[Rfam]
RNA sequence: UGGGCUAUAGCCAAGCGGUAAGGCAGCGGAUUUUGAUUCCGUCACGCGAAGGUUCGAAUCCUUCUAGCCCAG
Number, nucleotide and partner (000 for none) at each position: 001u071002g070003g069004g068005c067006u066007a065008u000009a000010g024011c023012c022013a000014a000015g000016c000017g000018g000019u000020a000021a000022g012023g011024c010025a000026g042027c041028g040029g039030a038031u000032u000033u000034u000035g000036a000037u000038u030039c029040c028041g027042u026043c000044a000045c000046g000047c000048g064049a063050a062051g061052g060053u000054u000055c000056g000057a000058a000059u000060c052061c051062u050063u049064c048065u007066a006067g005068c004069c003070c002071a001072g000
RNA: tRNA